[Rfam]
The family of this 71-nucleotide RNA sequence from Rodentolepis nana is "HDV ribozyme from F. prausnitzii".
Pairs were carried over by alignment from the consensus structure, which is taken from published work.
Taxonomically the source falls in Rodentolepis (Eukaryota, Eumetazoa, Bilateria, Lophotrochozoa).
Gene Ontology term of the family: catalytic activity.
RNA sequence: GGUGUGCGAUGGACUCACCUCCACGUGGUGCACCCUGGGCAACGUAUAACUCAUACGGCAAAAAAGUCUAU
Numbered sequence: 001g002g003u004g005u006g007c008g009a010u011g012g013a014c015u016c017a018c019c020u021c022c023a024c025g026u027g028g029u030g031c032a033c034c035c036u037g038g039g040c041a042a043c044g045u046a047u048a049a050c051u052c053a054u055a056c057g058g059c060a061a062a063a064a065a066g067u068c069u070a071u
Base pairs, nucleotide, nucleotide: 001036002035004033005032006031007030017029018028019027043057044056045055046054047053